[Rfam]
RNA sequence: UUUGAGGGGAAUGUUGUCUGGCUCGAGGACCCUUUUCCUUGAAAGAUCUGUAAUCCUAUAGAUCAAUCUUUAUAUCUGUAUAUAUUGAUCAUGACUUUUUGGUGGAGUUAGUGUCGUCGGACCAGGCUUCAUUCCCCCCAAU
Numbered sequence: 001u002u003u004g005a006g007g008g009g010a011a012u013g014u015u016g017u018c019u020g021g022c023u024c025g026a027g028g029a030c031c032c033u034u035u036u037c038c039u040u041g042a043a044a045g046a047u048c049u050g051u052a053a054u055c056c057u058a059u060a061g062a063u064c065a066a067u068c069u070u071u072a073u074a075u076c077u078g079u080a081u082a083u084a085u086u087g088a089u090c091a092u093g094a095c096u097u098u099u100u101g102g103u104g105g106a107g108u109u110a111g112u113g114u115c116g117u118c119g120g121a122c123c124a125g126g127c128u129u130c131a132u133u134c135c136c137c138c139c140a141a142u
Stems, first nucleotide, its partner, number of pairs: 002141003006137008016127006024119003
The record is a 142-nucleotide RNA sequence from Rosa chinensis, which matches "mir-166 microRNA precursor family" in Rfam. The family has 31 seed sequences and 2,599 matches in Rfam 15.1. This family represents the plant microRNA (miRNA) precursor mir-166. On this family, see Ambros, Cell 2001: "microRNAs: tiny regulators with great potential".